[Rfam]
RNA sequence: AAGCCAACCAGUUUAUUUGCCAAUCGGGAUGUGUUUCUGCAGAAAUUUAGAAACAGCUGGCAAUAAUGACACCAUUGCUAUGAGCCUUAAGGACAACUGAGGUCAUUCUGGUCCUUCAAAAUGGAUAUAAUG
Numbered sequence: 001a002a003g004c005c006a007a008c009c010a011g012u013u014u015a016u017u018u019g020c021c022a023a024u025c026g027g028g029a030u031g032u033g034u035u036u037c038u039g040c041a042g043a044a045a046u047u048u049a050g051a052a053a054c055a056g057c058u059g060g061c062a063a064u065a066a067u068g069a070c071a072c073c074a075u076u077g078c079u080a081u082g083a084g085c086c087u088u089a090a091g092g093a094c095a096a097c098u099g100a101g102g103u104c105a106u107u108c109u110g111g112u113c114c115u116u117c118a119a120a121a122u123g124g125a126u127a128u129a130a131u132g
Base pairs, nucleotide, nucleotide: 003061004060005059006058016043017042018041019040020039072124073123074122084112085111086110089107090106092104093103094102

Small nucleolar RNA SNORA33: a 132-nucleotide RNA sequence from Jaculus jaculus.
Gene Ontology terms of the family: RNA processing and nucleolus.
It is annotated as an H/ACA-box small nucleolar RNA.
Rfam describes the family as follows. ACA33 is a member of the H/ACA class of snoRNA that guide the sites of modification of uridines to pseudouridines.
The base pairs follow the family's consensus structure, which was predicted with PFOLD.
A search with the family's covariance model found it, with a score of 88 bits.